[Rfam]
RNA sequence: UGCCCCUUGGCAAAAAUAGAGUCGCAACUGGACUGGUUUAGUAGCUUCUUUUUAGUCGAAAGACCGGUAGACAAAAAUAAG
Numbered sequence: 001u002g003c004c005c006c007u008u009g010g011c012a013a014a015a016a017u018a019g020a021g022u023c024g025c026a027a028c029u030g031g032a033c034u035g036g037u038u039u040a041g042u043a044g045c046u047u048c049u050u051u052u053u054a055g056u057c058g059a060a061a062g063a064c065c066g067g068u069a070g071a072c073a074a075a076a077a078u079a080a081g
Stems, first nucleotide, its partner, number of pairs: 001012004021072003032068007044057001